ALIL pseudoknot: a 115-nucleotide RNA from Novosphingobium sp. BW1. Pairs were carried over by alignment from the consensus structure, which is taken from published work. A search with the family's covariance model found it, with a score of 83 bits. For this family Rfam cites "Apical loop-internal loop RNA pseudoknots: a new type of stimulator of -1 translational frameshifting in bacteria" (Mazauric et al., J Biol Chem, 2008). NCBI's taxonomy places the organism under Bacteria, Pseudomonadota, Sphingomonadales, Sphingomonadaceae, Novosphingobium. Rfam links the family to the GO term positive regulation of translational frameshifting.
[Rfam]
RNA sequence: UGCCUAUUUUGCGAUGGCGGAGCUCGACCGCCGCGAGAAAUGAUGAUGGCGUUCACAGAAGCCUAUCGCCAGGACUUGGGUAUCGAGCCGAUCUGCCGAGAGCUGGCAGUCGCCC
Numbered sequence: 001u002g003c004c005u006a007u008u009u010u011g012c013g014a015u016g017g018c019g020g021a022g023c024u025c026g027a028c029c030g031c032c033g034c035g036a037g038a039a040a041u042g043a044u045g046a047u048g049g050c051g052u053u054c055a056c057a058g059a060a061g062c063c064u065a066u067c068g069c070c071a072g073g074a075c076u077u078g079g080g081u082a083u084c085g086a087g088c089c090g091a092u093c094u095g096c097c098g099a100g101a102g103c104u105g106g107c108a109g110u111c112g113c114c115c
Stems, first nucleotide, its partner, number of pairs: 016032005078115003089112002092109001094108005